[Rfam]
RNA sequence: CACACAUGAGAGCGGCCUGAACAGCAAAUUCUGUCCAGACCAUCCGGUGAGAGAUUAUCUCUUUAUCAACUCUCAUGGAGGUUCAACCGGAAAAGGAGUUAA
Numbered sequence: 001c002a003c004a005c006a007u008g009a010g011a012g013c014g015g016c017c018u019g020a021a022c023a024g025c026a027a028a029u030u031c032u033g034u035c036c037a038g039a040c041c042a043u044c045c046g047g048u049g050a051g052a053g054a055u056u057a058u059c060u061c062u063u064u065a066u067c068a069a070c071u072c073u074c075a076u077g078g079a080g081g082u083u084c085a086a087c088c089g090g091a092a093a094a095g096g097a098g099u100u101a102a
Stems, first nucleotide, its partner, number of pairs: 001080001003078001005077006014041002022033003049063005